RNA: TD-2 RNA
Organism: Treponema vincentii
RNA sequence: ACGGACAUGGAUGUCCGUGAAGUUGAGCAGCAGCAAGUUUUUCGAAAGAAAACUUGUCGUUAAAAAGCGUACAUGGAAGUACGCUUUUUAACAGGC
Number, nucleotide and partner (000 for none) at each position: 001a018002c017003g016004g015005a014006c013007a000008u000009g000010g000011a000012u000013g006014u005015c004016c003017g002018u001019g000020a000021a000022g000023u000024u000025g000026a000027g000028c000029a000030g000031c000032a000033g000034c056035a055036a054037g053038u052039u051040u050041u049042u000043c048044g000045a000046a000047a000048g043049a041050a040051a039052a038053c037054u036055u035056g034057u000058c000059g092060u091061u090062a089063a088064a087065a086066a085067g084068c083069g082070u081071a080072c079073a000074u000075g000076g000077a000078a000079g072080u071081a070082c069083g068084c067085u066086u065087u064088u063089u062090a061091a060092c059093a000094g000095g000096c000